[Rfam]
RNA sequence: UAGAAACAAAAAGCGCCAGGACUCAAGUGAUUGAUAAAAGAUUGUCUUUUAGAAGGAAACUCAGACAUGCGUCUGAGUAAGUUCGACUAACCAAAUCAAAGAUUUGGAGUCUCACUUAAGUUGACGAGGAUGGGGAGUAUCGAAUCUUCGGCGGAUGCCCCACGGUACCACACUACCGUUAACAACUGAUAAAUACAGAAAGUGAUUUUUGUAACAACAUCAGUUUGGUGUCAAAA
Numbered sequence: 001u002a003g004a005a006a007c008a009a010a011a012a013g014c015g016c017c018a019g020g021a022c023u024c025a026a027g028u029g030a031u032u033g034a035u036a037a038a039a040g041a042u043u044g045u046c047u048u049u050u051a052g053a054a055g056g057a058a059a060c061u062c063a064g065a066c067a068u069g070c071g072u073c074u075g076a077g078u079a080a081g082u083u084c085g086a087c088u089a090a091c092c093a094a095a096u097c098a099a100a101g102a103u104u105u106g107g108a109g110u111c112u113c114a115c116u117u118a119a120g121u122u123g124a125c126g127a128g129g130a131u132g133g134g135g136a137g138u139a140u141c142g143a144a145u146c147u148u149c150g151g152c153g154g155a156u157g158c159c160c161c162a163c164g165g166u167a168c169c170a171c172a173c174u175a176c177c178g179u180u181a182a183c184a185a186c187u188g189a190u191a192a193a194u195a196c197a198g199a200a201a202g203u204g205a206u207u208u209u210u211g212u213a214a215c216a217a218c219a220u221c222a223g224u225u226u227g228g229u230g231u232c233a234a235a236a
Stems, first nucleotide, its partner, number of pairs: 020122004025117003029113001131162005140151004163178005184225005195212007
RNA: glmS glucosamine-6-phosphate activated ribozyme aptamer